A member of the RNA family "mir-393 microRNA precursor family" from Artemisia annua, 84 nucleotides long.
RNA sequence: GGUGGAAGCUUCCAAAGGGAUCGCAUUGAUCCGUCUUAUCUUAGUUGAUGUUUUGGAUCAUGCGAUGUCUUUGGACGUUUCCAU
Numbered sequence: 001g002g003u004g005g006a007a008g009c010u011u012c013c014a015a016a017g018g019g020a021u022c023g024c025a026u027u028g029a030u031c032c033g034u035c036u037u038a039u040c041u042u043a044g045u046u047g048a049u050g051u052u053u054u055g056g057a058u059c060a061u062g063c064g065a066u067g068u069c070u071u072u073g074g075a076c077g078u079u080u081c082c083a084u
Stems, first nucleotide, its partner, number of pairs: 002084005008078002011075008020066002023063004028059005
Taxonomically the source falls in Artemisia (Eukaryota, Viridiplantae, Magnoliopsida, Asterales). Rfam 15.1 lists 1,052 matches to the family in 221 species. The literature on the family includes a 2012 paper in J Plant Physiol by Kruszka et al., "Role of microRNAs and other sRNAs of plants in their changing environments". The base pairs follow the family's consensus structure.